[Rfam]
RNA sequence: CGAACCGCCCGGCUUGGGAGAGCCAAACGGUUCGCACGAGCCCCGGCGGUCUUGGGAGAGGCAGCCGCGGUUCUUCAGGGGAGAACUGCCGAUGGAGAAUACUCUUCUCGUCGCGCUAUCGCGCCAGAUGUCGCUUG
Numbered sequence: 001c002g003a004a005c006c007g008c009c010c011g012g013c014u015u016g017g018g019a020g021a022g023c024c025a026a027a028c029g030g031u032u033c034g035c036a037c038g039a040g041c042c043c044c045g046g047c048g049g050u051c052u053u054g055g056g057a058g059a060g061g062c063a064g065c066c067g068c069g070g071u072u073c074u075u076c077a078g079g080g081g082a083g084a085a086c087u088g089c090c091g092a093u094g095g096a097g098a099a100u101a102c103u104c105u106u107c108u109c110g111u112c113g114c115g116c117u118a119u120c121g122c123g124c125c126a127g128a129u130g131u132c133g134c135u136u137g
Base pairs, nucleotide, nucleotide: 001034002033003032004031005030006029007028011024012023013022014021015020038073039072040071041070042069049062050061051060052059053058090113091112092111093110095109096108097107098106099105
Notes:
Rfam assigns this 137-nucleotide sequence from Afipia sp. Root123D2 to the family "flg-Rhizobiales RNA". Pairs were carried over by alignment from the consensus structure, which is taken from published work.